[Rfam]
RNA sequence: CUUGCCACCGCACCUGACCAGUUCUUGUUAGCUGGUGCAAUCCAGUGGUGAGCUGAAAGUAAGCCCCAGCUUUUAGGAAACAGGGUUGUCCUAUAUGUGGAUGACUCUGUGCUAAAAGCAUGGGAACAGCU
Number, nucleotide and partner (000 for none) at each position: 001c000002u000003u000004g000005c048006c047007a046008c045009c000010g043011c000012a000013c000014c000015u000016g000017a036018c035019c034020a033021g032022u000023u030024c000025u000026u000027g000028u000029u000030a023031g000032c021033u020034g019035g018036u017037g000038c000039a000040a000041u000042c000043c010044a000045g008046u007047g006048g005049u000050g000051a000052g000053c000054u000055g000056a000057a000058a000059g000060u000061a000062a000063g000064c124065c123066c122067c000068a121069g119070c118071u117072u116073u000074u000075a000076g113077g112078a000079a000080a000081c109082a108083g107084g106085g105086u104087u000088g000089u101090c100091c099092u000093a000094u000095a000096u000097g000098u000099g091100g090101a089102u000103g000104a086105c085106u084107c083108u082109g081110u000111g000112c077113u076114a000115a000116a072117a071118g070119c069120a000121u068122g066123g065124g064125a000126a000127c000128a000129g000130c000131u000